[Rfam]
Background:
This 367-nucleotide RNA from Plantibacter sp. Leaf314 belongs to the Rfam family "Bacterial RNase P class A".
RNA sequence: CGGGCCGGCUAGACGGUCGCGUCACCGCGGCCUCCGGGUCACGGUGCCGAGGAACGUCCGGGCUCCACAGAGCAGGGCGGUGGGUAACACCCACCCGGGGUGACCCGCGAGACAGUGCCACAGAGAACAGACCGCCGUGGGCGACCACGGUCAGGGUGAAACGGUGGGGUAAGAGCCCACCAGCGACCGGGGUGACCCGGCCGGCUCGGUAAACCUCGUCCGGAGCAAGGUCAACAGGGAACGCUGAGGCUGCUCGCCAAGUUCCCGGGUAGACCGCUAGAGGGCGGCGGCAACGUCGUCCCGAGAGAGAUGGCCGUCCAAACGCGAGAGCGUGGGACAGAACCCGGCGUACCGGUCGACCCGUUCA
Numbered sequence: 001c002g003g004g005c006c007g008g009c010u011a012g013a014c015g016g017u018c019g020c021g022u023c024a025c026c027g028c029g030g031c032c033u034c035c036g037g038g039u040c041a042c043g044g045u046g047c048c049g050a051g052g053a054a055c056g057u058c059c060g061g062g063c064u065c066c067a068c069a070g071a072g073c074a075g076g077g078c079g080g081u082g083g084g085u086a087a088c089a090c091c092c093a094c095c096c097g098g099g100g101u102g103a104c105c106c107g108c109g110a111g112a113c114a115g116u117g118c119c120a121c122a123g124a125g126a127a128c129a130g131a132c133c134g135c136c137g138u139g140g141g142c143g144a145c146c147a148c149g150g151u152c153a154g155g156g157u158g159a160a161a162c163g164g165u166g167g168g169g170u171a172a173g174a175g176c177c178c179a180c181c182a183g184c185g186a187c188c189g190g191g192g193u194g195a196c197c198c199g200g201c202c203g204g205c206u207c208g209g210u211a212a213a214c215c216u217c218g219u220c221c222g223g224a225g226c227a228a229g230g231u232c233a234a235c236a237g238g239g240a241a242c243g244c245u246g247a248g249g250c251u252g253c254u255c256g257c258c259a260a261g262u263u264c265c266c267g268g269g270u271a272g273a274c275c276g277c278u279a280g281a282g283g284g285c286g287g288c289g290g291c292a293a294c295g296u297c298g299u300c301c302c303g304a305g306a307g308a309g310a311u312g313g314c315c316g317u318c319c320a321a322a323c324g325c326g327a328g329a330g331c332g333u334g335g336g337a338c339a340g341a342a343c344c345c346g347g348c349g350u351a352c353c354g355g356u357c358g359a360c361c362c363g364u365u366c367a
Stems, first nucleotide, its partner, number of pairs: 001363004006358005012318007020049002023046005054350003058347005063225004070255004075221005080094005095109001096107004110216002115214002117210003132155002134151007163181006183205001184203002187200005229275004237266006248258003282301008

A search with the family's covariance model found it, with a score of 270 bits.